Rfam assigns this 77-nucleotide RNA from Drosophila simulans to the family "mir-970 microRNA precursor family".
[Rfam]
RNA sequence: CUGUUGCAGCUAGCGGGUGUUUUAUUUGGUAGCUGAAUUGAUUUGAAUCUAUCAUAAGACACACGCGGCUAUAACCG
Numbered sequence: 001c002u003g004u005u006g007c008a009g010c011u012a013g014c015g016g017g018u019g020u021u022u023u024a025u026u027u028g029g030u031a032g033c034u035g036a037a038u039u040g041a042u043u044u045g046a047a048u049c050u051a052u053c054a055u056a057a058g059a060c061a062c063a064c065g066c067g068g069c070u071a072u073a074a075c076c077g
Base pairs, nucleotide, nucleotide: 001077003075004074005073006072008070009069010068011067013066014065015064018061019060021059022058023057027054028053029052030051031050

NCBI's taxonomy places the organism under Eukaryota, Pterygota, Endopterygota, Acalyptratae, Sophophora.
It is one of the family's seed sequences.